Notes: Rfam assigns this 118-nucleotide sequence from Oryzicola mucosus to the family "Alphaproteobacterial ar14". The match comes from Rfam's covariance-model search (93 bits). About the family: Smr14C2 was renamed NfeR1 (Nodule Formation Efficiency RNA) highly expressed in salt stress and during the symbiotic interaction on legume roots. Lineage of the source: Bacteria > Alphaproteobacteria > Hyphomicrobiales > Phyllobacteriaceae > Oryzicola. The family's RNA type in Rfam is small RNA.

[Rfam]
RNA sequence: CAGUGUUGUUGACGUUCUUUCCUCCUCCCAGAACGUCAGCAUAGAAAGCGGCAAAUCUCCUCCCUUGCUGCUUUUCAGAUUAAACCCGCCGCACCUCCUCCCGCGGCGGGUUUUUCUU
Numbered sequence: 001c002a003g004u005g006u007u008g009u010u011g012a013c014g015u016u017c018u019u020u021c022c023u024c025c026u027c028c029c030a031g032a033a034c035g036u037c038a039g040c041a042u043a044g045a046a047a048g049c050g051g052c053a054a055a056u057c058u059c060c061u062c063c064c065u066u067g068c069u070g071c072u073u074u075u076c077a078g079a080u081u082a083a084a085c086c087c088g089c090c091g092c093a094c095c096u097c098c099u100c101c102c103g104c105g106g107c108g109g110g111u112u113u114u115u116c117u118u
Base pairs, nucleotide, nucleotide: 007041008040009039011037012036013035014034015033016032017031046073047072048071049070050069051068052067053066082113083112084111085110086109087108088107089106090105091104092103
Dot-bracket structure: ......(((.(((((((.............))))))).)))....((((((((............))))))))........(((((((((((..........))))))))))).....